RNA sequence: CUGUACUAGAUGGGGAGGUAGCGGCACCCUGUAACCUGCAAUCCGCUAUAGCAGGGUUGAACUCCAUCUGGAGGAUUUUUUAUUCAAAGUGCAGUCCCGGAGAAGUGGUGUUGACGUUCAGGUCCCGGGCAACGGAAGCUCGUGAAGCGUGUCAGAUCCGGAAGGAAGCAGCACUAAGCGAUCACUUCUGUGUGACCCGGGGAAGCCUGGGCAGAGCUAACUGACCGGUAAACGGCUUUGAAUCCAGAUUCGAAGGAUGGUGUGCAG
Numbered sequence: 001c002u003g004u005a006c007u008a009g010a011u012g013g014g015g016a017g018g019u020a021g022c023g024g025c026a027c028c029c030u031g032u033a034a035c036c037u038g039c040a041a042u043c044c045g046c047u048a049u050a051g052c053a054g055g056g057u058u059g060a061a062c063u064c065c066a067u068c069u070g071g072a073g074g075a076u077u078u079u080u081u082a083u084u085c086a087a088a089g090u091g092c093a094g095u096c097c098c099g100g101a102g103a104a105g106u107g108g109u110g111u112u113g114a115c116g117u118u119c120a121g122g123u124c125c126c127g128g129g130c131a132a133c134g135g136a137a138g139c140u141c142g143u144g145a146a147g148c149g150u151g152u153c154a155g156a157u158c159c160g161g162a163a164g165g166a167a168g169c170a171g172c173a174c175u176a177a178g179c180g181a182u183c184a185c186u187u188c189u190g191u192g193u194g195a196c197c198c199g200g201g202g203a204a205g206c207c208u209g210g211g212c213a214g215a216g217c218u219a220a221c222u223g224a225c226c227g228g229u230a231a232a233c234g235g236c237u238u239u240g241a242a243u244c245c246a247g248a249u250u251c252g253a254a255g256g257a258u259g260g261u262g263u264g265c266a267g
Stems, first nucleotide, its partner, number of pairs: 001267006009058003012030004017025001019023001035055005064260006073251005082243009094233002097228004105221002107218003116212008124201006130192002133190005138183001140181004149174004157166003
The record is a 267-nucleotide RNA sequence from Peptacetobacter hominis, which matches "Bacterial large signal recognition particle RNA" in Rfam. Lineage of the source: Bacteria > Bacillota > Clostridia > Peptostreptococcales > Peptacetobacter.